A member of the RNA family "LOOT RNA", 120 nucleotides long. Rfam's curators put it in the seed alignment. The base pairs follow the family's consensus structure, which is taken from published work.
RNA sequence: GACCUAACCCGCCAUUGGCGGUAUGGUUGUUACAAAUCCAUCGUGAAAUAAAAGCUCGUCGUCAGAGCACUGUUUCACGAUAGUCGGUACUGGAAACGGUACCGGGUAGCUUCGGCUAUC
Numbered sequence: 001g002a003c004c005u006a007a008c009c010c011g012c013c014a015u016u017g018g019c020g021g022u023a024u025g026g027u028u029g030u031u032a033c034a035a036a037u038c039c040a041u042c043g044u045g046a047a048a049u050a051a052a053a054g055c056u057c058g059u060c061g062u063c064a065g066a067g068c069a070c071u072g073u074u075u076c077a078c079g080a081u082a083g084u085c086g087g088u089a090c091u092g093g094a095a096a097c098g099g100u101a102c103c104g105g106g107u108a109g110c111u112u113c114g115g116c117u118a119u120c
Base pairs, nucleotide, nucleotide: 001028002027003026004025009021010020011019012018013017038083040081041080042079043078044077045076046075047074048073054068055067056066057065085104086103087102088101089100090099091098092097105120106119107118108117109116110115